[Rfam]
Nucleotides: 131
Stems, first nucleotide, its partner, number of pairs: 002057006015043004022036004069124006082110003087105004
Number, partner (000 for none) and nucleotide at each position: 001000u002057g003056g004055g005054a006053g007052a008000c009000u010000g011000a012000u013000a014000c015043a016042c017041a018040a019000c020000u021000a022036g023035g024034g025033c026000u027000a028000a029000g030000c031000c032000u033025g034024c035023u036022c037000u038000a039000a040018u041017u042016g043015u044000c045000a046000c047000a048000u049000u050000g051000u052007u053006c054005u055004c056003c057002c058000u059000a060000u061000a062000g063000u064000a065000a066000a067000a068000u069124u070123g071122c072121u073120u074119u075000c076000u077000g078000a079000u080000g081000a082110c083109c084108g085000g086000g087105a088104c089103g090102a091000a092000u093000u094000g095000a096000g097000a098000g099000a100000a101000a102090u103089c104088g105087u106000a107000a108084c109083g110082g111000a112000c113000a114000g115000a116000u117000a118000c119074g120073g121072a122071g123070c124069a125000u126000a127000c128000a129000a130000u131000a
This 131-nucleotide sequence from Campylorhamphus procurvoides belongs to the Rfam family "Small Cajal body specific RNA 8". Rfam classes the family as a small Cajal body RNA. The match comes from Rfam's covariance-model search (129 bits). scaRNAs are a specific class of small nuclear RNAs which localise to the Cajal bodies and guide the modification of RNA polymerase II transcribed spliceosomal RNAs U1, U2, U4, U5 and U12. Lineage of the source: Eukaryota > Vertebrata > Telluraves > Passeriformes > Campylorhamphus.